A member of the RNA family "6S / SsrS RNA" from Acidithiobacillus caldus, 181 nucleotides long. The family's RNA type in Rfam is non-coding RNA gene.
[Rfam]
RNA sequence: UGCUCCCUGCGGGGCACGUGUGGCCGAGAUGAUUCCUGAACCAACAUUGUCUAUCCAGGGGAUCCUCAGUCAUCACCGCGGUGUGCCGCUCUUUUGCGGAGUAGCCUGAAGCGGUGUGUGGAUUCCCACCUGAACAUCAGGUUCCUGGGAUAGCGGGCCGCACGACCCAGGCGGGGAGUCU
Numbered sequence: 001u002g003c004u005c006c007c008u009g010c011g012g013g014g015c016a017c018g019u020g021u022g023g024c025c026g027a028g029a030u031g032a033u034u035c036c037u038g039a040a041c042c043a044a045c046a047u048u049g050u051c052u053a054u055c056c057a058g059g060g061g062a063u064c065c066u067c068a069g070u071c072a073u074c075a076c077c078g079c080g081g082u083g084u085g086c087c088g089c090u091c092u093u094u095u096g097c098g099g100a101g102u103a104g105c106c107u108g109a110a111g112c113g114g115u116g117u118g119u120g121g122a123u124u125c126c127c128a129c130c131u132g133a134a135c136a137u138c139a140g141g142u143u144c145c146u147g148g149g150a151u152a153g154c155g156g157g158c159c160g161c162a163c164g165a166c167c168c169a170g171g172c173g174g175g176g177a178g179u180c181u
Stems, first nucleotide, its partner, number of pairs: 002179009012168003017164003033150004038144005058127003062123004067118001074116006085105002089101004

The match comes from Rfam's covariance-model search (73 bits). For this family Rfam cites "6S RNA regulates E. coli RNA polymerase activity" (Wassarman and Storz, Cell, 2000).